[Rfam]
RNA: Small nucleolar RNA SNORA51
Nucleotides: 132
Base pairs, nucleotide, nucleotide: 002059004057005056007054008053020043021042022041026037027036028035029034072124073123074122075121076120077119086110087109088108090106092104093103094102095101
Number, partner (000 for none) and nucleotide at each position: 001000g002059g003000a004057c005056u006000g007054c008053u009000u010000g011000u012000g013000c014000u015000u016000a017000c018000c019000a020043c021042a022041g023000a024000c025000u026037g027036u028035g029034u030000u031000c032000u033000u034029a035028c036027a037026c038000u039000g040000a041022c042021u043020g044000u045000a046000u047000a048000u049000a050000a051000a052000a053008a054007g055000g056005a057004g058000g059002c060000a061000a062000a063000g064000u065000a066000c067000a068000c069000c070000u071000a072124c073123c074122c075121c076120a077119u078000a079000u080000g081000u082000a083000c084000c085000u086110c087109a088108g089000c090106c091000c092104a093103g094102g095101c096000c097000c098000u099000a100000u101095g102094c103093c104092u105000u106090g107000u108088c109087u110086g111000u112000a113000u114000u115000g116000u117000g118000a119077a120076u121075g122074g123073g124072g125000a126000g127000a128000c129000a130000u131000g132000g